Shown here is a 75-nucleotide sequence from Haemonchus placei, a member of the family "mir-5928 microRNA precursor family". Gene Ontology terms of the family: RISC complex and miRNA-mediated post-transcriptional gene silencing. A search with the family's covariance model found it, with a score of 68 bits. Taxonomically the source falls in Haemonchus (Eukaryota, Eumetazoa, Rhabditida, Rhabditina).
RNA sequence: GGCACAAACUUGAAGUAGAGUGGAUCAGUAUGGUCAGCUGAUCCUACUGAUCUACCACACUCUAAGUUUGGGCUC
Numbered sequence: 001g002g003c004a005c006a007a008a009c010u011u012g013a014a015g016u017a018g019a020g021u022g023g024a025u026c027a028g029u030a031u032g033g034u035c036a037g038c039u040g041a042u043c044c045u046a047c048u049g050a051u052c053u054a055c056c057a058c059a060c061u062c063u064a065a066g067u068u069u070g071g072g073c074u075c
Stems, first nucleotide, its partner, number of pairs: 001074003005070005011064002014061003020055004025050006032043004

Notes
The family's consensus secondary structure was predicted with RNAalifold.